[Rfam]
The record is a 99-nucleotide RNA from Gossypium anomalum, which matches "Small nucleolar RNA R64/Z200 family" in Rfam.
The family's RNA type in Rfam is C/D-box small nucleolar RNA.
For this family Rfam cites "Purified box C/D snoRNPs are able to reproduce site-specific 2'-O-methylation of target RNA in vitro" (Galardi et al., Mol Cell Biol, 2002).
Rfam links the family to the GO terms nucleolus and RNA processing.
The family has 14 seed sequences and 748 matches in Rfam 15.1.

RNA sequence: AUUCUGCUAUGAUGAAUUAUGAAAAAAAUUCACAUGUCAGACUUCAGAGAUUUUUUAAAAGAAAUCUAUGAGAAGAAAUUCAUAUUUUCUGAGCAGAAG
Numbered sequence: 001a002u003u004c005u006g007c008u009a010u011g012a013u014g015a016a017u018u019a020u021g022a023a024a025a026a027a028a029u030u031c032a033c034a035u036g037u038c039a040g041a042c043u044u045c046a047g048a049g050a051u052u053u054u055u056u057a058a059a060a061g062a063a064a065u066c067u068a069u070g071a072g073a074a075g076a077a078a079u080u081c082a083u084a085u086u087u088u089c090u091g092a093g094c095a096g097a098a099g
Stems, first nucleotide, its partner, number of pairs: 002098006049066006